[Rfam]
RNA sequence: GAGGGAGAGGACGGGAAGAAAGGAGGGCGUGGUUUUUGCAGGUCCUCACUCCUCUCCUCCCGUCUUCUUCUUCU
Numbered sequence: 001g002a003g004g005g006a007g008a009g010g011a012c013g014g015g016a017a018g019a020a021a022g023g024a025g026g027g028c029g030u031g032g033u034u035u036u037u038g039c040a041g042g043u044c045c046u047c048a049c050u051c052c053u054c055u056c057c058u059c060c061c062g063u064c065u066u067c068u069u070c071u072u073c074u
Base pairs, nucleotide, nucleotide: 004070005069006068007067008066009065010064011063012062013061014060015059016058018056022054024053025052026051027050029049030048031047